The family of this 186-nucleotide RNA from Azomonas agilis is "Pseudomonas sRNA P27".
The family's consensus secondary structure was predicted with WAR.
The family's RNA type in Rfam is small RNA.
A search with the family's covariance model found it, with a score of 132 bits.
Taxonomically the source falls in Azomonas (Bacteria, Pseudomonadati, Pseudomonadales, Pseudomonadaceae).
A reference for the family is Livny et al. (2006), "Identification of 17 Pseudomonas aeruginosa sRNAs and prediction of sRNA-encoding genes in 10 diverse pathogens using the bioinformatic tool sRNAPredict2", Nucleic Acids Res.
[Rfam]
RNA sequence: CGGGUUUACUCCUGGAUAUUACCGAUACAUCCGGCUUACACCGGACGGUUUUGGUGUCUGAUUCGGUACGAAUCGGGAGCACCUCUGCGUAGGCGUUCUUGUUUAAGGCUUGCGCCGCCUACGGUCUUGGAAAGCCCCCGCCAGGCAGGGACCCCAAUACAGCAGAGCCAGCUUUAAUUAAGACUG
Numbered sequence: 001c002g003g004g005u006u007u008a009c010u011c012c013u014g015g016a017u018a019u020u021a022c023c024g025a026u027a028c029a030u031c032c033g034g035c036u037u038a039c040a041c042c043g044g045a046c047g048g049u050u051u052u053g054g055u056g057u058c059u060g061a062u063u064c065g066g067u068a069c070g071a072a073u074c075g076g077g078a079g080c081a082c083c084u085c086u087g088c089g090u091a092g093g094c095g096u097u098c099u100u101g102u103u104u105a106a107g108g109c110u111u112g113c114g115c116c117g118c119c120u121a122c123g124g125u126c127u128u129g130g131a132a133a134g135c136c137c138c139c140g141c142c143a144g145g146c147a148g149g150g151a152c153c154c155c156a157a158u159a160c161a162g163c164a165g166a167g168c169c170a171g172c173u174u175u176a177a178u179u180a181a182g183a184c185u186g
Stems, first nucleotide, its partner, number of pairs: 002154006011145004028047001030045005053083005058076007087141003092136003096133001102131009170185002173182003